[Rfam]
RNA: DUF805b RNA
Organism: Pedobacter heparinus
RNA sequence: AAUGAGGAAGCCGAAAAUCAAUAACAGAGUAGGCA
Number, nucleotide and partner (000 for none) at each position: 001a000002a000003u020004g019005a018006g000007g000008a000009a000010g034011c033012c032013g000014a000015a000016a000017a000018u005019c004020a003021a000022u000023a000024a000025c000026a000027g000028a000029g000030u000031a000032g012033g011034c010035a000